The record is a 97-nucleotide sequence from Agromyces tardus, which matches "mraW RNA" in Rfam. NCBI's taxonomy places the organism under Bacteria, Bacillati, Micrococcales, Microbacteriaceae, Agromyces. It scores 54 bits against the family's covariance model. Rfam 15.1 lists 851 matches to the family in 821 species. By type it is a cis-regulatory element.
[Rfam]
RNA sequence: CUGAGUCCCCGGGUUGCGACUCCCAGCCGUGCGCGCCUGAUGCACUUCCCCGCACCAGGACGAACGGAUGGGGAUCGGAGCCCGGGGCACGAGUCCC
Numbered sequence: 001c002u003g004a005g006u007c008c009c010c011g012g013g014u015u016g017c018g019a020c021u022c023c024c025a026g027c028c029g030u031g032c033g034c035g036c037c038u039g040a041u042g043c044a045c046u047u048c049c050c051c052g053c054a055c056c057a058g059g060a061c062g063a064a065c066g067g068a069u070g071g072g073g074a075u076c077g078g079a080g081c082c083c084g085g086g087g088c089a090c091g092a093g094u095c096c097c
Base pairs, nucleotide, nucleotide: 010084011083012082013081014080015079018076019075021073022072023071024070025069027067028066029065030064032062033061036059037058038057039056041054042053043052